[Rfam]
This 104-nucleotide RNA sequence from Mycobacteroides abscessus belongs to the Rfam family "mraW RNA".
The match comes from Rfam's covariance-model search (75 bits).

RNA sequence: GCGGACCCGCGCAGCGCGGCCUCUGUCCGAUACGACCCUGGCGUACUUCCCCGACGCCAGGUUCGCACCAUCGGACAGGGACCGGGCGGCGCGGGUUCGUUGCA
Numbered sequence: 001g002c003g004g005a006c007c008c009g010c011g012c013a014g015c016g017c018g019g020c021c022u023c024u025g026u027c028c029g030a031u032a033c034g035a036c037c038c039u040g041g042c043g044u045a046c047u048u049c050c051c052c053g054a055c056g057c058c059a060g061g062u063u064c065g066c067a068c069c070a071u072c073g074g075a076c077a078g079g080g081a082c083c084g085g086g087c088g089g090c091g092c093g094g095g096u097u098c099g100u101u102g103c104a
Stems, first nucleotide, its partner, number of pairs: 010091003014087002018083002021080010031067001033065003037061008